[Rfam]
RNA sequence: CAGAAUACAUGAUGAUCUCACCCCAACUUGAACUCUCUCACUGAUUGCUUGAUGAAAAUGGAAGAUCUGAUAUUCUU
Numbered sequence: 001c002a003g004a005a006u007a008c009a010u011g012a013u014g015a016u017c018u019c020a021c022c023c024c025a026a027c028u029u030g031a032a033c034u035c036u037c038u039c040a041c042u043g044a045u046u047g048c049u050u051g052a053u054g055a056a057a058a059u060g061g062a063a064g065a066u067c068u069g070a071u072a073u074u075c076u077u
Base pairs, nucleotide, nucleotide: 002076003075004074005073006072007071
Shown here is a 77-nucleotide RNA sequence from Molossus molossus, a member of the family "Small nucleolar RNA SNORD81". A reference for the family is Smith and Steitz (1998), "Classification of gas5 as a multi-small-nucleolar-RNA (snoRNA) host gene and a member of the 5'-terminal oligopyrimidine gene family reveals common features of snoRNA host genes", Mol Cell Biol. Pairs were carried over by alignment from the consensus structure, which was predicted with PFOLD. The family has 22 seed sequences and 317 matches in Rfam 15.1. The organism belongs to Molossus, within Eukaryota. The family is grouped with related families in Rfam's "SNORD26 clan". Rfam links the family to the GO terms nucleolus and RNA processing. A search with the family's covariance model found it, with a score of 93 bits.